[Rfam]
RNA sequence: CGAAAUGCUGUGAAGGUGUAUAGUAAUGACAUGUUUACCUGCAGAGAGAGGUUGCCAUCGGCUGCGAGCAUCCUCAGGUUCUGACAUGAAGUGAAAUUCCCACCGGAGCUUUCUGAUUGAAUCAGUCUUGUAGUAGAUCAGAACGUUGCACGCGUUAAGUGCUCAGAGGUGUCUGUUCAUACAAUAUGGGCAGGAACAUGGGUGGUACCGCGGAUCAUUUCGUCCCUUGU
Numbered sequence: 001c002g003a004a005a006u007g008c009u010g011u012g013a014a015g016g017u018g019u020a021u022a023g024u025a026a027u028g029a030c031a032u033g034u035u036u037a038c039c040u041g042c043a044g045a046g047a048g049a050g051g052u053u054g055c056c057a058u059c060g061g062c063u064g065c066g067a068g069c070a071u072c073c074u075c076a077g078g079u080u081c082u083g084a085c086a087u088g089a090a091g092u093g094a095a096a097u098u099c100c101c102a103c104c105g106g107a108g109c110u111u112u113c114u115g116a117u118u119g120a121a122u123c124a125g126u127c128u129u130g131u132a133g134u135a136g137a138u139c140a141g142a143a144c145g146u147u148g149c150a151c152g153c154g155u156u157a158a159g160u161g162c163u164c165a166g167a168g169g170u171g172u173c174u175g176u177u178c179a180u181a182c183a184a185u186a187u188g189g190g191c192a193g194g195a196a197c198a199u200g201g202g203u204g205g206u207a208c209c210g211c212g213g214a215u216c217a218u219u220u221c222g223u224c225c226c227u228u229g230u
Stems, first nucleotide, its partner, number of pairs: 007109002015104004026092002030088002039077003050073002053070003112142007144154003172194009200226003210223005
RNA: T-box leader